[Rfam]
RNA sequence: UCUCUGUCACAACGGCUUCCUGGCGUGUCAGAGCAAACCCAAUGGAGCA
Number, nucleotide and partner (000 for none) at each position: 001u000002c000003u000004c031005u030006g029007u000008c027009a026010c025011a000012a000013c022014g021015g048016c047017u046018u000019c045020c044021u014022g013023g000024c000025g010026u009027g008028u000029c006030a005031g004032a000033g000034c000035a000036a000037a000038c000039c000040c000041a000042a000043u000044g020045g019046a017047g016048c015049a000
RNA: SAM/SAH riboswitch aptamer